About this RNA: This 76-nucleotide sequence from Branchiostoma floridae belongs to the Rfam family "mir-4872 microRNA precursor family". The match comes from Rfam's covariance-model search (89 bits).
RNA sequence: UCACAUGUGGUGCCGGGGUAACUAAAACUCUGAGUUCUAUUUGCAUCAGAGUUUUGUUACCUUGGCUCCGUAUGGG
Numbered sequence: 001u002c003a004c005a006u007g008u009g010g011u012g013c014c015g016g017g018g019u020a021a022c023u024a025a026a027a028c029u030c031u032g033a034g035u036u037c038u039a040u041u042u043g044c045a046u047c048a049g050a051g052u053u054u055u056g057u058u059a060c061c062u063u064g065g066c067u068c069c070g071u072a073u074g075g076g
Stems, first nucleotide, its partner, number of pairs: 001076002004074004009069002012066006019059004024055010034044002

Pairs were carried over by alignment from the consensus structure, which was predicted with RNAalifold.